Annotation:
This 90-nucleotide RNA from Thrips palmi belongs to the Rfam family "mir-277 microRNA precursor family". Pairs were carried over by alignment from the consensus structure, which was predicted with RNAalifold. Its family is annotated with miRNA-mediated post-transcriptional gene silencing and RISC complex in the Gene Ontology. It scores 64 bits against the family's covariance model. Taxonomically the source falls in Thrips (Eukaryota, Hexapoda, Dicondylia, Pterygota).

RNA sequence: CGGGCUCCCGAGUCCGUGCCAGAGGCGCAUUUGCACGGCGAACGCUCCCAGUGUGUAAAUGCACUAUCUGGUACGACACUUCGGGGCCCU
Numbered sequence: 001c002g003g004g005c006u007c008c009c010g011a012g013u014c015c016g017u018g019c020c021a022g023a024g025g026c027g028c029a030u031u032u033g034c035a036c037g038g039c040g041a042a043c044g045c046u047c048c049c050a051g052u053g054u055g056u057a058a059a060u061g062c063a064c065u066a067u068c069u070g071g072u073a074c075g076a077c078a079c080u081u082c083g084g085g086g087c088c089c090u
Stems, first nucleotide, its partner, number of pairs: 008084004015075009025064001027062009